[Rfam]
RNA sequence: CACACGCGAGACAUUUGCGCCAUGCGGAUGAAAAGCCCCGCAUCGUGCUCCGGUGGAGAAAUGAUAAGCCCAUAAAAAGGCUUGCAAAUCUCUUCUCAAGUCUCGCGGAGGUCUAACCGGAAAAGGAAACGU
Numbered sequence: 001c002a003c004a005c006g007c008g009a010g011a012c013a014u015u016u017g018c019g020c021c022a023u024g025c026g027g028a029u030g031a032a033a034a035g036c037c038c039c040g041c042a043u044c045g046u047g048c049u050c051c052g053g054u055g056g057a058g059a060a061a062u063g064a065u066a067a068g069c070c071c072a073u074a075a076a077a078a079g080g081c082u083u084g085c086a087a088a089u090c091u092c093u094u095c096u097c098a099a100g101u102c103u104c105g106c107g108g109a110g111g112u113c114u115a116a117c118c119g120g121a122a123a124a125g126g127a128a129a130c131g132u
Stems, first nucleotide, its partner, number of pairs: 001110001003108001005107007017048002025040003055095005